[Rfam]
RNA sequence: CAGUCCUGCCCUCAAUUUCUGCUCCUCCUGCCAAAACUGUGGUAGAGAGCUUGGGGCGGACAUAGAUAAAACACUCUUAUAUUAGGAGGGUUUCUUCAAGUGCUAAGCUGCCCUCAAAGGCACAAGAGAACAUC
Numbered sequence: 001c002a003g004u005c006c007u008g009c010c011c012u013c014a015a016u017u018u019c020u021g022c023u024c025c026u027c028c029u030g031c032c033a034a035a036a037c038u039g040u041g042g043u044a045g046a047g048a049g050c051u052u053g054g055g056g057c058g059g060a061c062a063u064a065g066a067u068a069a070a071a072c073a074c075u076c077u078u079a080u081a082u083u084a085g086g087a088g089g090g091u092u093u094c095u096u097c098a099a100g101u102g103c104u105a106a107g108c109u110g111c112c113c114u115c116a117a118a119g120g121c122a123c124a125a126g127a128g129a130a131c132a133u134c
Stems, first nucleotide, its partner, number of pairs: 003061004010055002021050003025047002028045004074128005082119002086115006094107003
Notes: Shown here is a 134-nucleotide RNA from Python bivittatus, a member of the family "Small Cajal body specific RNA 11". The literature on the family includes a 2002 paper in EMBO J by Darzacq et al., "Cajal body-specific small nuclear RNAs: a novel class of 2'-O-methylation and pseudouridylation guide RNAs". Rfam describes the family as follows. scaRNAs are a specific class of small nuclear RNAs which localise to the Cajal bodies and guide the modification of RNA polymerase II transcribed spliceosomal RNAs U1, U2, U4, U5 and U12. The match comes from Rfam's covariance-model search (47 bits). Rfam classes the family as a small Cajal body RNA. The family has 24 seed sequences and 853 matches in Rfam 15.1.